The record is an 81-nucleotide RNA from Megalops atlanticus, which matches "let-7 microRNA precursor family" in Rfam. Taxonomically the source falls in Megalops (Eukaryota, Euteleostomi, Elopocephalai, Megalopidae). For this family Rfam cites "Control of developmental timing in animals" (Rougvie, Nat Rev Genet, 2001). Pairs were carried over by alignment from the consensus structure, which was predicted with RNAalifold.
RNA sequence: GUGGAAUGAGGUAGUAGUUUGUAUAGUUUUAGCAUCACACCAGAUCUGGGCGAUAGCUAUACAGCCUACUGUCUUUCCCAC
Numbered sequence: 001g002u003g004g005a006a007u008g009a010g011g012u013a014g015u016a017g018u019u020u021g022u023a024u025a026g027u028u029u030u031a032g033c034a035u036c037a038c039a040c041c042a043g044a045u046c047u048g049g050g051c052g053a054u055a056g057c058u059a060u061a062c063a064g065c066c067u068a069c070u071g072u073c074u075u076u077c078c079c080a081c
Base pairs, nucleotide, nucleotide: 001081002080003079004078006076008075009074010073011072012071013070014069015068016067017066019064020063021062022061023060024059025058026057027056045052
Dot-bracket structure: ((((.(.((((((((((.(((((((((.................(......)...))))))))).))))))))))).))))